[Rfam]
RNA sequence: AAAUGCCAUGUGGUAUCUGAUGCCUGGUCUUUUCCAUGGCCUCGCGUCUCGUAAGAGUGGCAGAAAGAGAUUGGGCGGGUUCUUUGCGACACUGGCUGCUCUGCAACAAUGAGCUUCCUGUUACUAUUCCCCCGCAACAUUU
Numbered sequence: 001a002a003a004u005g006c007c008a009u010g011u012g013g014u015a016u017c018u019g020a021u022g023c024c025u026g027g028u029c030u031u032u033u034c035c036a037u038g039g040c041c042u043c044g045c046g047u048c049u050c051g052u053a054a055g056a057g058u059g060g061c062a063g064a065a066a067g068a069g070a071u072u073g074g075g076c077g078g079g080u081u082c083u084u085u086g087c088g089a090c091a092c093u094g095g096c097u098g099c100u101c102u103g104c105a106a107c108a109a110u111g112a113g114c115u116u117c118c119u120g121u122u123a124c125u126a127u128u129c130c131c132c133c134g135c136a137a138c139a140u141u142u
Stems, first nucleotide, its partner, number of pairs: 004062005009056001019048005026041004075135005091121002094118002098114003
This 142-nucleotide RNA from Digitaria exilis belongs to the Rfam family "Small nucleolar RNA F1/F2/snoR5a". The family's consensus secondary structure was predicted with PFOLD. This family contains F1, F2 and snoR5a sequences, all of which are members of the the H/ACA class of snoRNA that guide the sites of modification of uridines to pseudouridines. A search with the family's covariance model found it, with a score of 68 bits. Rfam links the family to the GO terms nucleolus and RNA processing.